Shown here is a 198-nucleotide RNA from Anaerostipes caccae, a member of the family "Group II catalytic intron D1-D4-5". Group II introns are found in rRNA, tRNA and mRNA of organelles in fungi, plants and protists, and also in mRNA in bacteria. It is one of the family's seed sequences. On this family, see Bonen and Vogel, Trends Genet 2001: "The ins and outs of group II introns". Rfam links the family to the GO term Group II intron splicing. Taxonomically the source falls in Anaerostipes caccae (Bacteria, Bacillati, Bacillota, Lachnospiraceae).
[Rfam]
RNA sequence: GAGAACUGCAUAACUGAAAUCUCAAAUGAUGGGGUAACGCCCGGAAGGGGAUUCACUGAUACUCCGAGUAGCGUCAGCCAGAUACAGUGGCUGGGGUUAUAAGCGCGGGAAAGUCGUGCGAAGCACACCCUAACGCUGAAAGGCGAGGAAAGAUUCAUAGAGGUAUGAGUUGUGUGUGACAGUGCGGGUGGGGCUGCC
Numbered sequence: 001g002a003g004a005a006c007u008g009c010a011u012a013a014c015u016g017a018a019a020u021c022u023c024a025a026a027u028g029a030u031g032g033g034g035u036a037a038c039g040c041c042c043g044g045a046a047g048g049g050g051a052u053u054c055a056c057u058g059a060u061a062c063u064c065c066g067a068g069u070a071g072c073g074u075c076a077g078c079c080a081g082a083u084a085c086a087g088u089g090g091c092u093g094g095g096g097u098u099a100u101a102a103g104c105g106c107g108g109g110a111a112a113g114u115c116g117u118g119c120g121a122a123g124c125a126c127a128c129c130c131u132a133a134c135g136c137u138g139a140a141a142g143g144c145g146a147g148g149a150a151a152g153a154u155u156c157a158u159a160g161a162g163g164u165a166u167g168a169g170u171u172g173u174g175u176g177u178g179a180c181a182g183u184g185c186g187g188g189u190g191g192g193g194c195u196g197c198c
Base pairs, nucleotide, nucleotide: 018053019052020051021050022049023048032042033041034040054190055189056188057187064108065107066106068100069099070098071097072096074094075093076092077091078090079089080088115186116185117184118183119182123177124176125175126174127173128172129148130147131146135144136143152171153170154169155168156167157166158165159164
Dot-bracket structure: .................((((((........(((.....))).....))))))((((......(((.(((((.(((((((.......))))))).))))).....)))......(((((...(((((((((...((......)).)))...((((((((....))))))))))))))....)))))))))........

The base pairs follow the family's consensus structure.